[Rfam]
RNA: mir-375 microRNA precursor family
RNA sequence: AUUCACCCGAGCCCAUCAAACAAUGCGUUACAAGAACUGCUUUGUUCGUUCGGCUCGCGUUACAA
Numbered sequence: 001a002u003u004c005a006c007c008c009g010a011g012c013c014c015a016u017c018a019a020a021c022a023a024u025g026c027g028u029u030a031c032a033a034g035a036a037c038u039g040c041u042u043u044g045u046u047c048g049u050u051c052g053g054c055u056c057g058c059g060u061u062a063c064a065a
Base pairs, nucleotide, nucleotide: 003062005060006059008057009056010055011054012053013052017048020045021044022043023042025040026039